[Rfam]
RNA sequence: CACCCCAAUGAUGAAAUCUAUGAAAAUCAAAAUGCUAAAAGUAGUGAACUGUUUCAUUGAUGAAUAGUUCAUUUUGAGGGGUC
Numbered sequence: 001c002a003c004c005c006c007a008a009u010g011a012u013g014a015a016a017u018c019u020a021u022g023a024a025a026a027u028c029a030a031a032a033u034g035c036u037a038a039a040a041g042u043a044g045u046g047a048a049c050u051g052u053u054u055c056a057u058u059g060a061u062g063a064a065u066a067g068u069u070c071a072u073u074u075u076g077a078g079g080g081g082u083c
Base pairs, nucleotide, nucleotide: 002082003081004080005079006078
RNA: Small nucleolar RNA R21